[Rfam]
RNA sequence: ACAAUAGUAUACGGUUUCUUCGAGGGUGGUCAGCUCAUUCCCUAUCGAAAGGGGGUGGUGCUGUAUGACAGUUUUUGAAAGUUUAAUGCUAGCAAUAGCUUUUGCUUCCUUAAUUAUUGCGGUGCUGUCAUUUAAUCACAAAAAAUAAUCCACCCUUGAGUUUAGCGACCAAGGUGGAUUAUUUCCCUUAACAUGCUGACCCUUAAAAGGGAGCCUUGCUAUUGACUUACCGUUCGUGUGACACCACGGACA
Numbered sequence: 001a002c003a004a005u006a007g008u009a010u011a012c013g014g015u016u017u018c019u020u021c022g023a024g025g026g027u028g029g030u031c032a033g034c035u036c037a038u039u040c041c042c043u044a045u046c047g048a049a050a051g052g053g054g055g056u057g058g059u060g061c062u063g064u065a066u067g068a069c070a071g072u073u074u075u076u077g078a079a080a081g082u083u084u085a086a087u088g089c090u091a092g093c094a095a096u097a098g099c100u101u102u103u104g105c106u107u108c109c110u111u112a113a114u115u116a117u118u119g120c121g122g123u124g125c126u127g128u129c130a131u132u133u134a135a136u137c138a139c140a141a142a143a144a145a146u147a148a149u150c151c152a153c154c155c156u157u158g159a160g161u162u163u164a165g166c167g168a169c170c171a172a173g174g175u176g177g178a179u180u181a182u183u184u185c186c187c188u189u190a191a192c193a194u195g196c197u198g199a200c201c202c203u204u205a206a207a208a209g210g211g212a213g214c215c216u217u218g219c220u221a222u223u224g225a226c227u228u229a230c231c232g233u234u235c236g237u238g239u240g241a242c243a244c245c246a247c248g249g250a251c252a
Stems, first nucleotide, its partner, number of pairs: 002224004007219003012198004017193001019160008028150003035058003039054005067129006081093002103121003171182001200211003232251007
A member of the RNA family "BsrG" from Oceanobacillus oncorhynchi, 252 nucleotides long. A reference for the family is Saito et al. (2008), "Novel small RNA-encoding genes in the intergenic regions of Bacillus subtilis", Gene. It is annotated as a small RNA. Taxonomically the source falls in Oceanobacillus (Bacteria, Bacilli, Caryophanales, Bacillaceae). Its family is annotated with toxin activity and autolysis in the Gene Ontology. About the family: bsrE, bsrG and bsrH pair through intermolecular interactions with antisense sRNAs. They form type I toxin/antitoxin system that includes an mRNA encoding for a short, toxic peptide (bsrE, bsrG and bsrH) and an antitoxin that is comprised of an antisense RNA. bsrG encodes a 39-amino-acid toxin, and the 180 nucleotide antisense sRNA called SR4 acts as the antitoxin (they overlap by 123 nucleotides). SR4 interaction with the 3'UTR of bsrG RNA promotes bsrG degradation and inhibits its translation.